ivy-DE RNA: an 85-nucleotide sequence. It is one of the family's seed sequences.

[Rfam]
RNA sequence: GAGCCAAGGGGUCGGGACGCUCUGUUCAACGGAGCGACCUAGGGGUACAUGGAGUACCUCCAUCACGGACCGGGUUCGGCGUAAG
Dot-bracket structure: (((((....(((((((.(.((((((...)))))).).))).(((((((.....))))))).......)))).)))))........
Numbered sequence: 001g002a003g004c005c006a007a008g009g010g011g012u013c014g015g016g017a018c019g020c021u022c023u024g025u026u027c028a029a030c031g032g033a034g035c036g037a038c039c040u041a042g043g044g045g046u047a048c049a050u051g052g053a054g055u056a057c058c059u060c061c062a063u064c065a066c067g068g069a070c071c072g073g074g075u076u077c078g079g080c081g082u083a084a085g
Stems, first nucleotide, its partner, number of pairs: 001077005010071004014040003018036001020034006042060007
By type it is a cis-regulatory element.